The family of this 83-nucleotide RNA sequence from Candidatus Fokinia solitaria is "tRNA". NCBI's taxonomy places the organism under Bacteria, Pseudomonadati, Alphaproteobacteria, Candidatus Midichloriaceae, Candidatus Fokinia. The base pairs follow the family's consensus structure, which is taken from published work. A search with the family's covariance model found it, with a score of 57 bits.
[Rfam]
RNA sequence: GCCUCUGUGGCGGAAUGGUAGACGCGGCAGACUCAAAAUCUGCUGUCUUUGCGGAUGUGCUGGUUCGAGUCCAGUCAGAGGUA
Numbered sequence: 001g002c003c004u005c006u007g008u009g010g011c012g013g014a015a016u017g018g019u020a021g022a023c024g025c026g027g028c029a030g031a032c033u034c035a036a037a038a039u040c041u042g043c044u045g046u047c048u049u050u051g052c053g054g055a056u057g058u059g060c061u062g063g064u065u066c067g068a069g070u071c072c073a074g075u076c077a078g079a080g081g082u083a
Stems, first nucleotide, its partner, number of pairs: 001082007010025003027043005059075005